[Rfam]
RNA sequence: AGAGGUCAUGAGUUUGAGGACAUAGCAGAAGCUCUCGUGGCAUACCUCUGUCAGAUUCCAGCGAAUCUGCAAAUGCUGCU
Numbered sequence: 001a002g003a004g005g006u007c008a009u010g011a012g013u014u015u016g017a018g019g020a021c022a023u024a025g026c027a028g029a030a031g032c033u034c035u036c037g038u039g040g041c042a043u044a045c046c047u048c049u050g051u052c053a054g055a056u057u058c059c060a061g062c063g064a065a066u067c068u069g070c071a072a073a074u075g076c077u078g079c080u
Stems, first nucleotide, its partner, number of pairs: 016048004020043001024080005030074001031041003052069007
RNA: Mammalian CPEB3 ribozyme
Organism: Alligator mississippiensis